[Rfam]
RNA sequence: UUGACCUUUAAUUAGAUCCAGAGAGAUUUAAAAGGUCGCUUCAGGAAACGUGUGUCAUAACAGGACACGUGUACCUCUUUGCGGCCUUUCGCAAAGAGGUUUUUUUG
Numbered sequence: 001u002u003g004a005c006c007u008u009u010a011a012u013u014a015g016a017u018c019c020a021g022a023g024a025g026a027u028u029u030a031a032a033a034g035g036u037c038g039c040u041u042c043a044g045g046a047a048a049c050g051u052g053u054g055u056c057a058u059a060a061c062a063g064g065a066c067a068c069g070u071g072u073a074c075c076u077c078u079u080u081g082c083g084g085c086c087u088u089u090c091g092c093a094a095a096g097a098g099g100u101u102u103u104u105u106u107g
Stems, first nucleotide, its partner, number of pairs: 003037007013030006050068003056064001071102001073100012
RNA: PyrR binding site